RNA sequence: AGGAGGAACAACCGCAGUGGCGGCGGCCAGCUCUGGAACCCUGGAGUCAGCUCCUGCAGGAACUACGGAGCUCUCUGUCUUCAGGGGCCUGGAUGCUCCAGGGGCGG
Numbered sequence: 001a002g003g004a005g006g007a008a009c010a011a012c013c014g015c016a017g018u019g020g021c022g023g024c025g026g027c028c029a030g031c032u033c034u035g036g037a038a039c040c041c042u043g044g045a046g047u048c049a050g051c052u053c054c055u056g057c058a059g060g061a062a063c064u065a066c067g068g069a070g071c072u073c074u075c076u077g078u079c080u081u082c083a084g085g086g087g088c089c090u091g092g093a094u095g096c097u098c099c100a101g102g103g104g105c106g107g
Stems, first nucleotide, its partner, number of pairs: 002099004007094001009091002012087002019079005025074002029072007037064001040060004
RNA: mir-8834 microRNA precursor family
Organism: Canis lupus